This 120-nucleotide sequence from Pelotomaculum schinkii belongs to the Rfam family "Molybdenum/Tungsten riboswitch aptamer (Moco RNA motif)". It scores 72 bits against the family's covariance model.
[Rfam]
Nucleotides: 120
Base pairs, nucleotide, nucleotide: 004113006111012105013104014103015102016101019054020053021052022051025049026048027047028046029045034041035040060085061084062083063082065080066079067078068077069076070075086097087096
Number, partner (000 for none) and nucleotide at each position: 001000u002000a003000u004113a005000u006111a007000a008000a009000u010000g011000a012105a013104c014103u015102c016101c017000g018000a019054g020053c021052c022051a023000u024000a025049c026048u027047g028046u029045c030000u031000a032000a033000a034041c035040c036000a037000c038000a039000g040035g041034g042000c043000a044000u045029g046028a047027u048026a049025g050000c051022u052021g053020g054019c055000c056000g057000a058000u059000a060085g061084g062083g063082u064000u065080c066079a067078g068077u069076g070075g071000g072000a073000a074000a075070c076069u077068g078067c079066u080065g081000c082063g083062c084061c085060u086097c087096c088000c089000g090000c091000a092000a093000u094000u095000u096087g097086g098000a099000a100000a101016g102015g103014a104013g105012u106000g107000a108000a109000g110000u111006u112000u113004u114000u115000a116000a117000g118000g119000g120000a